RNA sequence: ACCUGAAAUACAUACUUCUUUACAUUCCAUAGCUCCGCACGUCCAUAUGGGCAUAUAAAGAAGUAUGUUCCCCAAGC
Numbered sequence: 001a002c003c004u005g006a007a008a009u010a011c012a013u014a015c016u017u018c019u020u021u022a023c024a025u026u027c028c029a030u031a032g033c034u035c036c037g038c039a040c041g042u043c044c045a046u047a048u049g050g051g052c053a054u055a056u057a058a059a060g061a062a063g064u065a066u067g068u069u070c071c072c073c074a075a076g077c
Base pairs, nucleotide, nucleotide: 010068011067012066013065014064015063016062017061018060019059020058021057022056024054027050028049029048030047031046
Source information
Rfam assigns this 77-nucleotide sequence from Ailuropoda melanoleuca to the family "mir-1 microRNA precursor family". From the family's description: This family represents the microRNA (miRNA) mir-1 family. miRNAs are transcribed as ~70nt precursors (modelled here) and subsequently processed by the Dicer enzyme to give a ~22nt product. In this case the mature sequence comes from the 3' arm of the precursor. The family has 137 seed sequences and 4,474 matches in Rfam 15.1. The match comes from Rfam's covariance-model search (46 bits).